Rfam assigns this 43-nucleotide RNA from Fodinibius roseus to the family "Ribosomal protein L19 leader". The family's consensus secondary structure was predicted with CMfinder. Gene Ontology term of the family: regulation of gene expression. From the family's description: This family is a putative r-protein leader autoregulatory structure found in B. subtilis and other low-GC Gram-positive bacteria. It is located in the 5' untranslated regions of mRNAs encoding ribosomal protein L19 (rplS). The match comes from Rfam's covariance-model search (36 bits).

[Rfam]
RNA sequence: ACGAUGUUCGGCUGUGAUUUUGUAUCAGCAGCAAGAACAUUCG
Numbered sequence: 001a002c003g004a005u006g007u008u009c010g011g012c013u014g015u016g017a018u019u020u021u022g023u024a025u026c027a028g029c030a031g032c033a034a035g036a037a038c039a040u041u042c043g
Stems, first nucleotide, its partner, number of pairs: 003041007013033002015030002018027001